[Rfam]
RNA sequence: UAAACUUCAUUGGUCAGAGCAACACGCAGUCACAUAAGUUUCUGAAAUGUGUCACUGGUUUUCCUCUGACUAAUUGAAGAUAU
Numbered sequence: 001u002a003a004a005c006u007u008c009a010u011u012g013g014u015c016a017g018a019g020c021a022a023c024a025c026g027c028a029g030u031c032a033c034a035u036a037a038g039u040u041u042c043u044g045a046a047a048u049g050u051g052u053c054a055c056u057g058g059u060u061u062u063c064c065u066c067u068g069a070c071u072a073a074u075u076g077a078a079g080a081u082a083u
Stems, first nucleotide, its partner, number of pairs: 003081001005079005012071008021062002027057004032052004
Description: Rfam assigns this 83-nucleotide RNA from Caenorhabditis remanei to the family "mir-359 microRNA precursor family". The base pairs follow the family's consensus structure, which was predicted with RNAalifold. Rfam links the family to the GO terms miRNA-mediated post-transcriptional gene silencing and RISC complex. For this family Rfam cites "Dynamic expression of small non-coding RNAs, including novel microRNAs and piRNAs/21U-RNAs, during Caenorhabditis elegans development" (Kato et al., Genome Biol, 2009). NCBI's taxonomy places the organism under Eukaryota, Protostomia, Rhabditomorpha, Peloderinae, Caenorhabditis. The match comes from Rfam's covariance-model search (73 bits).